Record summary
The record is a 74-nucleotide RNA sequence from Calditerrivibrio nitroreducens, which matches "tRNA" in Rfam. The family's consensus secondary structure is taken from published work. From the family's description: Transfer RNA (tRNA) molecules are approximately 80 nucleotides in length. Their secondary structure includes four short double-helical elements and three loops (D, anti-codon, and T loops). Further hydrogen bonds mediate the characteristic L-shaped molecular structure. tRNAs have two regions of fundamental functional importance: the anti-codon, which is responsible for specific mRNA codon recognition, and the 3' end, to which the tRNAs corresponding amino acid is attached (by aminoacyl-tRNA synthetases). tRNAs cope with the degeneracy of the genetic code in two manners: having more than one tRNA (with a specific anti-codon) for a particular amino acid; and 'wobble' base-pairing, i.e. permitting non-standard base-pairing at the 3rd anti-codon position. A reference for the family is Hou (1993), "The tertiary structure of tRNA and the development of the genetic code", Trends Biochem Sci.
RNA sequence: CGGGGCGUGGCGCAGCCUGGUAGCGUACACCCUUGGGGUGGGUGUGGUCGCUGGUUCAAAUCCAGUCGCCCCGA
Numbered sequence: 001c002g003g004g005g006c007g008u009g010g011c012g013c014a015g016c017c018u019g020g021u022a023g024c025g026u027a028c029a030c031c032c033u034u035g036g037g038g039u040g041g042g043u044g045u046g047g048u049c050g051c052u053g054g055u056u057c058a059a060a061u062c063c064a065g066u067c068g069c070c071c072c073g074a
Stems, first nucleotide, its partner, number of pairs: 001073007010026004028044005050066005